[Rfam]
RNA sequence: CCUGCGGUUAGACGGAAAGACCCUGUGCACCUUUACUAUAGCUUUGCAGUGGUAUAAGGAAUGUGAUGUGUAGGAUAGGUGGGAGUCUAUGAACCUUGGGCGCCAGCUUGAGGGGAGACACCCUUGAAAUACCACCCUUUGCAUUUUUUAUGCCUAACUGAGUCCCGUGAAGCCGGGACCAGGACCCUGCAUGGUGGGUAGUUUGACUGGGGCGGUCGCCUCCCAAAGAGUAACGGAGGCGCGCAAAGGUGGGCUCAAGCCGGUCGGAAAUCGGCUGUUGAGUGCAAUGGCAUAAGCCUGCCUGACUGUGAGACUGACAAGUCAAGCAGAGACGAAAGUCGGUCAUAGUGAUCCGGUGGUCCCGCGUGGAAGGGCCAUCGCUCAACGGAUAAAAGGUACGCCAGGGAUAACAGGCUGAUCUCCCCCAAGAGUUCACAUCGACGGGGAGGUUUGGCACCUCGAUGUCGGCUCAUCACAUCCUGGGGCUGGAGCAGGUCCCAAGGGUUUGGCUGUUCGCCAAUUAAAGUGGUACGUGAGCUGGGUUCAGAACGUCGUGAGACAGUUCGGUCCCUAUCUGCCGUGGGUGUU
Numbered sequence: 001c002c003u004g005c006g007g008u009u010a011g012a013c014g015g016a017a018a019g020a021c022c023c024u025g026u027g028c029a030c031c032u033u034u035a036c037u038a039u040a041g042c043u044u045u046g047c048a049g050u051g052g053u054a055u056a057a058g059g060a061a062u063g064u065g066a067u068g069u070g071u072a073g074g075a076u077a078g079g080u081g082g083g084a085g086u087c088u089a090u091g092a093a094c095c096u097u098g099g100g101c102g103c104c105a106g107c108u109u110g111a112g113g114g115g116a117g118a119c120a121c122c123c124u125u126g127a128a129a130u131a132c133c134a135c136c137c138u139u140u141g142c143a144u145u146u147u148u149u150a151u152g153c154c155u156a157a158c159u160g161a162g163u164c165c166c167g168u169g170a171a172g173c174c175g176g177g178a179c180c181a182g183g184a185c186c187c188u189g190c191a192u193g194g195u196g197g198g199u200a201g202u203u204u205g206a207c208u209g210g211g212g213c214g215g216u217c218g219c220c221u222c223c224c225a226a227a228g229a230g231u232a233a234c235g236g237a238g239g240c241g242c243g244c245a246a247a248g249g250u251g252g253g254c255u256c257a258a259g260c261c262g263g264u265c266g267g268a269a270a271u272c273g274g275c276u277g278u279u280g281a282g283u284g285c286a287a288u289g290g291c292a293u294a295a296g297c298c299u300g301c302c303u304g305a306c307u308g309u310g311a312g313a314c315u316g317a318c319a320a321g322u323c324a325a326g327c328a329g330a331g332a333c334g335a336a337a338g339u340c341g342g343u344c345a346u347a348g349u350g351a352u353c354c355g356g357u358g359g360u361c362c363c364g365c366g367u368g369g370a371a372g373g374g375c376c377a378u379c380g381c382u383c384a385a386c387g388g389a390u391a392a393a394a395g396g397u398a399c400g401c402c403a404g405g406g407a408u409a410a411c412a413g414g415c416u417g418a419u420c421u422c423c424c425c426c427a428a429g430a431g432u433u434c435a436c437a438u439c440g441a442c443g444g445g446g447a448g449g450u451u452u453g454g455c456a457c458c459u460c461g462a463u464g465u466c467g468g469c470u471c472a473u474c475a476c477a478u479c480c481u482g483g484g485g486c487u488g489g490a491g492c493a494g495g496u497c498c499c500a501a502g503g504g505u506u507u508g509g510c511u512g513u514u515c516g517c518c519a520a521u522u523a524a525a526g527u528g529g530u531a532c533g534u535g536a537g538c539u540g541g542g543u544u545c546a547g548a549a550c551g552u553c554g555u556g557a558g559a560c561a562g563u564u565c566g567g568u569c570c571c572u573a574u575c576u577g578c579c580g581u582g583g584g585u586g587u588u
Stems, first nucleotide, its partner, number of pairs: 001584008010576003014571002022405004027401002029397005035202004042194002045191004051154016068137001078136005085119003094113008158182003162179006205217004218240006241386001243343002249301006255281002258276006282291002306329004312323003331340003354380007362373002414455003418452001419449007429439002466541001467539004471533001472530005479504002482499006506520005547565004551560003

The record is a 588-nucleotide part of an RNA from bacterium NHP-B, which matches "Bacterial large subunit ribosomal RNA" in Rfam. A reference for the family is Cannone et al. (2002), "The comparative RNA web (CRW) site: an online database of comparative sequence and structure information for ribosomal, intron, and other RNAs", BMC Bioinformatics. The base pairs follow the family's consensus structure, which is taken from published work.